[Rfam]
RNA sequence: UCCAUCGAGGGGCGCUGCACUCGCGCAACCGGAUCCCCGGGCGCGAUCAGGCUCGAUGGAAGCGAAACGAUGCAACGGCGCCCGUGACUG
Numbered sequence: 001u002c003c004a005u006c007g008a009g010g011g012g013c014g015c016u017g018c019a020c021u022c023g024c025g026c027a028a029c030c031g032g033a034u035c036c037c038c039g040g041g042c043g044c045g046a047u048c049a050g051g052c053u054c055g056a057u058g059g060a061a062g063c064g065a066a067a068c069g070a071u072g073c074a075a076c077g078g079c080g081c082c083c084g085u086g087a088c089u090g
Stems, first nucleotide, its partner, number of pairs: 002059007021046006
Rfam assigns this 90-nucleotide RNA sequence from Pseudoluteimonas lycopersici to the family "SAH (S-adenosyl-L-homocysteine) riboswitch aptamer".
Rfam 15.1 lists 1,354 matches to the family in 1,132 species.
The source organism's lineage runs through Bacteria, Pseudomonadati, Gammaproteobacteria, Lysobacterales and Pseudoluteimonas.
It scores 52 bits against the family's covariance model.
Pairs were carried over by alignment from the consensus structure, which is taken from published work.
For this family Rfam cites "Riboswitches that sense S-adenosylhomocysteine and activate genes involved in coenzyme recycling" (Wang et al., Mol Cell, 2008).